[Rfam]
RNA sequence: GAAUAUCAUUAAGAGUUCCGUGAAAGUCACGGAUGCCAACCGAUCCUUCGCAGGGCACGGUGGAAAAAAAAGAUGAGAGGCUCGCACCUAAAAACAAAUAGCGAAUCC
Numbered sequence: 001g002a003a004u005a006u007c008a009u010u011a012a013g014a015g016u017u018c019c020g021u022g023a024a025a026g027u028c029a030c031g032g033a034u035g036c037c038a039a040c041c042g043a044u045c046c047u048u049c050g051c052a053g054g055g056c057a058c059g060g061u062g063g064a065a066a067a068a069a070a071a072g073a074u075g076a077g078a079g080g081c082u083c084g085c086a087c088c089u090a091a092a093a094a095c096a097a098a099u100a101g102c103g104a105a106u107c108c
Base pairs, nucleotide, nucleotide: 006076007075008074009073010072015034017033018032019031020030021029022028023027036063037062040060041059042058044055045054048103052099078089079088080087
RNA: SAM-I/IV (S-adenosyl methionine) riboswitch aptamer